[Rfam]
RNA sequence: UUUGAGCCGAGGGGCACUUGUGGAAACUUCAGAUCGGCGUCGAUCGGAAACCGUAGCAAAAAGCCCGCACCACGUGAAGGACUGACUGAAGCGUGAUGAAUACUGAGCUCUAAUGCAAAGAGCAGUCAGGCAGUAGUAAG
Numbered sequence: 001u002u003u004g005a006g007c008c009g010a011g012g013g014g015c016a017c018u019u020g021u022g023g024a025a026a027c028u029u030c031a032g033a034u035c036g037g038c039g040u041c042g043a044u045c046g047g048a049a050a051c052c053g054u055a056g057c058a059a060a061a062a063g064c065c066c067g068c069a070c071c072a073c074g075u076g077a078a079g080g081a082c083u084g085a086c087u088g089a090a091g092c093g094u095g096a097u098g099a100a101u102a103c104u105g106a107g108c109u110c111u112a113a114u115g116c117a118a119a120g121a122g123c124a125g126u127c128a129g130g131c132a133g134u135a136g137u138a139a140g
Base pairs, nucleotide, nucleotide: 012066013065014064015063019058020057021056032045033044034043035042036041068098069097071095072094073093074092075091082129083128084127085126101135102134103133104132107123108122109121110120111119
Dot-bracket structure: ...........((((...(((..........(((((....)))))..........)))....)))).((.(((((......[[[[.....))))).))..((((..(((((.......)))))..]]]]..)))).....